RNA sequence: AGAGGUAGUUUGAGGCCAUAGCAGAAGUGCUCACGGCAUGGCCCUGUCAGAUUCCAGUGAAUCUGCAAAUUCUGCU
Numbered sequence: 001a002g003a004g005g006u007a008g009u010u011u012g013a014g015g016c017c018a019u020a021g022c023a024g025a026a027g028u029g030c031u032c033a034c035g036g037c038a039u040g041g042c043c044c045u046g047u048c049a050g051a052u053u054c055c056a057g058u059g060a061a062u063c064u065g066c067a068a069a070u071u072c073u074g075c076u
Stems, first nucleotide, its partner, number of pairs: 012044001014043004020076007027039003048065007
RNA: Mammalian CPEB3 ribozyme